[Rfam]
RNA sequence: GUGGCAGCUUGGCGGUCGUAUGUGUGGCGCCAUUUGCUUGAACUCUUUGGAGUGACAUCACAUAUACGGUGGCUAAACUGCUCC
Numbered sequence: 001g002u003g004g005c006a007g008c009u010u011g012g013c014g015g016u017c018g019u020a021u022g023u024g025u026g027g028c029g030c031c032a033u034u035u036g037c038u039u040g041a042a043c044u045c046u047u048u049g050g051a052g053u054g055a056c057a058u059c060a061c062a063u064a065u066a067c068g069g070u071g072g073c074u075a076a077a078c079u080g081c082u083c084c
Base pairs, nucleotide, nucleotide: 003082004081005080006079007078015070016069017068018067019066020065021064022063024061025060026059027058029056031054032053033052037050038049